[Rfam]
Annotation: c-di-GMP-I riboswitch aptamer: an 85-nucleotide RNA sequence from Paenibacillus sp. TCA20. On this family, see Weinberg et al., Nucleic Acids Res 2007: "Identification of 22 candidate structured RNAs in bacteria using the CMfinder comparative genomics pipeline". The match comes from Rfam's covariance-model search (65 bits).

RNA sequence: UUGAAUACGUGGCAAAGCUGUUGAAAAGCAGUGACGCAAAGCUAGAGGGACUACUUCCGUAAGGAAAUGUCAGCCAGUUGCUUGA
Numbered sequence: 001u002u003g004a005a006u007a008c009g010u011g012g013c014a015a016a017g018c019u020g021u022u023g024a025a026a027a028g029c030a031g032u033g034a035c036g037c038a039a040a041g042c043u044a045g046a047g048g049g050a051c052u053a054c055u056u057c058c059g060u061a062a063g064g065a066a067a068u069g070u071c072a073g074c075c076a077g078u079u080g081c082u083u084g085a
Base pairs, nucleotide, nucleotide: 012037013036017032018031019030020029021028022027040079041078042077043076047075048074049071050070051069056065057064058063